[Rfam]
RNA sequence: GAAACGCACCAGGGGUGCCUGCGUCUGCUUCAGUCUCAGCUAUUUAGCUAGGAUAUGGGCAGGACGGGCUGAGAAAGUCCCUUUGAACCUGAACAGGAUAAUACCUGCGUAGGGAGUGUGCUUUUUGUUUUCC
Numbered sequence: 001g002a003a004a005c006g007c008a009c010c011a012g013g014g015g016u017g018c019c020u021g022c023g024u025c026u027g028c029u030u031c032a033g034u035c036u037c038a039g040c041u042a043u044u045u046a047g048c049u050a051g052g053a054u055a056u057g058g059g060c061a062g063g064a065c066g067g068g069c070u071g072a073g074a075a076a077g078u079c080c081c082u083u084u085g086a087a088c089c090u091g092a093a094c095a096g097g098a099u100a101a102u103a104c105c106u107g108c109g110u111a112g113g114g115a116g117u118g119u120g121c122u123u124u125u126u127g128u129u130u131u132c133c
Base pairs, nucleotide, nucleotide: 006121007120008119009118011082012081013080014079016076017069018068019067020066021065088113089112090111091110094107095106096105097104
Dot-bracket structure: .....((((.((((.((((((...........................................)))))......)..)))).....((((..((((......))))..))))....))))............